[Rfam]
A member of the RNA family "Early nodulin 40" from Gossypium armourianum, 234 nucleotides long. Lineage of the source: Eukaryota > Viridiplantae > Magnoliopsida > eudicotyledons > Gossypium. Rfam 15.1 lists 341 matches to the family in 193 species. The literature on the family includes a 2007 paper in Nucleic Acids Res by Gultyaev and Roussis, "Identification of conserved secondary structures and expansion segments in enod40 RNAs reveals new enod40 homologues in plants". Gene Ontology term of the family: nodulation.
RNA sequence: AUGGGGUCUUCAUAAAGCACUGGGGAGGGGGGAGUUUGGGUGGGAUUCCUCCAUUCUCACCCUCAGCCCACAAUUAAAACUGUUUGGCAGUGCUUAUUACCCAAUAACCUUUGCAUGGAAGAGGAUCCAUCCUGCAGAGCACCUACCUAUCUGCAGAGGCUUUUUUGGCUAAUGCACUGCAAAUCGGCAAGUCACGAAAAGGGCAAUCAACUCAUAGUAAUUAGUAUGAGUCUG
Numbered sequence: 001a002u003g004g005g006g007u008c009u010u011c012a013u014a015a016a017g018c019a020c021u022g023g024g025g026a027g028g029g030g031g032g033a034g035u036u037u038g039g040g041u042g043g044g045a046u047u048c049c050u051c052c053a054u055u056c057u058c059a060c061c062c063u064c065a066g067c068c069c070a071c072a073a074u075u076a077a078a079a080c081u082g083u084u085u086g087g088c089a090g091u092g093c094u095u096a097u098u099a100c101c102c103a104a105u106a107a108c109c110u111u112u113g114c115a116u117g118g119a120a121g122a123g124g125a126u127c128c129a130u131c132c133u134g135c136a137g138a139g140c141a142c143c144u145a146c147c148u149a150u151c152u153g154c155a156g157a158g159g160c161u162u163u164u165u166u167g168g169c170u171a172a173u174g175c176a177c178u179g180c181a182a183a184u185c186g187g188c189a190a191g192u193c194a195c196g197a198a199a200a201g202g203g204c205a206a207u208c209a210a211c212u213c214a215u216a217g218u219a220a221u222u223a224g225u226a227u228g229a230g231u232c233u234g
Base pairs, nucleotide, nucleotide: 031068032067082184083183084182085181086180104173105172210231211230212229213228214227215226216225